Notes:
A member of the RNA family "mir-492 microRNA precursor family" from Octodon degus, 75 nucleotides long. Rfam links the family to the GO terms miRNA-mediated post-transcriptional gene silencing and RISC complex.
RNA sequence: ACCAUCCAGGACCUGCAGGACAAUAUUCUUGGAGUCACCACUGAGAAUGCCAAGAUCGUCCUGCAGAUCAACAGU
Numbered sequence: 001a002c003c004a005u006c007c008a009g010g011a012c013c014u015g016c017a018g019g020a021c022a023a024u025a026u027u028c029u030u031g032g033a034g035u036c037a038c039c040a041c042u043g044a045g046a047a048u049g050c051c052a053a054g055a056u057c058g059u060c061c062u063g064c065a066g067a068u069c070a071a072c073a074g075u
Stems, first nucleotide, its partner, number of pairs: 010069002013066009023056001027055006034048001